A member of the RNA family "RNA Staph. aureus E (RoxS)" from Robertmurraya siralis, 116 nucleotides long. The family's RNA type in Rfam is small RNA. It was shown to be regulated by the presence of nitric oxide (NO). Gene Ontology term of the family: regulation of translational initiation. The organism belongs to Robertmurraya, within Bacteria. The literature on the family includes a 2009 paper in Nucleic Acids Res by Geissmann et al., "A search for small noncoding RNAs in Staphylococcus aureus reveals a conserved sequence motif for regulation". The match comes from Rfam's covariance-model search (103 bits). Pairs were carried over by alignment from the consensus structure, which is taken from published work.
RNA sequence: GUGAAGUUAAUCACAAGCAAACAUACCCCUUGUUUGACCGUGAAAAAUUUCUCCCAUCCCCUUUGUUCGUUUUAUAUAGGAAAAGACCGUGUAAACAUUAAGUUUACACGGUCUUU
Numbered sequence: 001g002u003g004a005a006g007u008u009a010a011u012c013a014c015a016a017g018c019a020a021a022c023a024u025a026c027c028c029c030u031u032g033u034u035u036g037a038c039c040g041u042g043a044a045a046a047a048u049u050u051c052u053c054c055c056a057u058c059c060c061c062u063u064u065g066u067u068c069g070u071u072u073u074a075u076a077u078a079g080g081a082a083a084a085g086a087c088c089g090u091g092u093a094a095a096c097a098u099u100a101a102g103u104u105u106a107c108a109c110g111g112u113c114u115u116u
Base pairs, nucleotide, nucleotide: 003051004050005049006048007047008046011043012042013041014040018036019035020034021033022032023031067081072078085113086112087111088110089109090108091107092106093105094104095103